[Rfam]
RNA sequence: GUUGAGGGGAAUGUUGUCUGGUUCGACACCGUUCAUUAUCUUUCAUAUGACGGUAACGAUGUCGGACCAGGCUUCAUUCCCCCCAAC
Number, nucleotide and partner (000 for none) at each position: 001g087002u086003u085004g084005a000006g082007g081008g080009g079010a078011a077012u076013g075014u000015u000016g072017u071018c070019u069020g068021g067022u000023u000024c064025g063026a062027c061028a060029c000030c000031g000032u000033u000034c000035a000036u000037u000038a000039u000040c000041u000042u000043u000044c000045a000046u000047a000048u000049g000050a000051c000052g000053g000054u000055a000056a000057c000058g000059a000060u028061g027062u026063c025064g024065g000066a000067c021068c020069a019070g018071g017072c016073u000074u000075c013076a012077u011078u010079c009080c008081c007082c006083c000084c004085a003086a002087c001
The record is an 87-nucleotide sequence from Cucurbita maxima, which matches "mir-166 microRNA precursor family" in Rfam. The literature on the family includes a 2001 paper in Cell by Ambros, "microRNAs: tiny regulators with great potential". From the family's description: This family represents the plant microRNA (miRNA) precursor mir-166. A search with the family's covariance model found it, with a score of 78 bits. Gene Ontology terms of the family: miRNA-mediated post-transcriptional gene silencing and RISC complex.